[Rfam]
RNA sequence: UACCGCCGCCCUCCUUGGGCGUUUCCUCCCUAGACUUGGGCCGCUGGCACACGCUGGCGGCCUCUUUUUUUGUGGCU
Dot-bracket structure: .......((((.....))))..................(((((((((......)))))))))...............
RNA: Makes More Granules Regulator RNA (mmgR)
Organism: Rhodoplanes serenus